Nucleotides: 128
Stems, first nucleotide, its partner, number of pairs: 001057008014045007023037004066125001069123005087111003090102002
Number, partner (000 for none) and nucleotide at each position: 001057u002056c003055u004054u005053g006052u007051a008050u009000c010000c011000a012000a013000a014045a015044g016043u017042g018041a019040u020039c021000a022000u023037g024036g025035g026034u027000u028000g029000c030000c031000u032000g033000u034026g035025u036024c037023c038000c039020g040019a041018u042017c043016a044015u045014u046000a047000a048000c049000a050008g051007u052006g053005c054004a055003g056002g057001g058000g059000u060000a061000g062000g063000a064000g065000u066125g067000c068000u069123g070122a071121a072120a073119g074000a075000c076000a077000u078000c079000u080000u081000c082000c083000c084000u085000g086000c087111g088110u089109u090102g091101g092000u093000c094000c095000a096000g097000c098000c099000u100000u101091c102090c103000c104000u105000u106000u107000c108000a109089a110088a111087c112000c113000c114000u115000g116000g117000a118000g119073c120072u121071u122070u123069c124000c125066c126000a127000c128000g

This 128-nucleotide RNA belongs to the Rfam family "Small nucleolar RNA SNORA71". Pairs were carried over by alignment from the consensus structure, which was predicted with PFOLD. It is annotated as an H/ACA-box small nucleolar RNA. The sequence is in the family's curated seed alignment. On this family, see Ganot et al., Genes Dev 1997: "The family of box ACA small nucleolar RNAs is defined by an evolutionarily conserved secondary structure and ubiquitous sequence elements essential for RNA accumulation".